mir-2060 microRNA precursor family: an 87-nucleotide RNA sequence from Branchiostoma lanceolatum. The base pairs follow the family's consensus structure, which was predicted with RNAalifold. Its family is annotated with miRNA-mediated post-transcriptional gene silencing and RISC complex in the Gene Ontology.
[Rfam]
RNA sequence: GGGGUGUGGAUGGUGUUCAAAACCACAGACAGGUGUAUUUACCUGUGUGUGGAUGGUGUUCAGUACCAGGGACAGGUGUGUUUACCU
Numbered sequence: 001g002g003g004g005u006g007u008g009g010a011u012g013g014u015g016u017u018c019a020a021a022a023c024c025a026c027a028g029a030c031a032g033g034u035g036u037a038u039u040u041a042c043c044u045g046u047g048u049g050u051g052g053a054u055g056g057u058g059u060u061c062a063g064u065a066c067c068a069g070g071g072a073c074a075g076g077u078g079u080g081u082u083u084a085c086c087u
Base pairs, nucleotide, nucleotide: 002073011068012067013066014065015064016063017062019060020059022057023056024055025054027048029046030045031044032043033042034041035040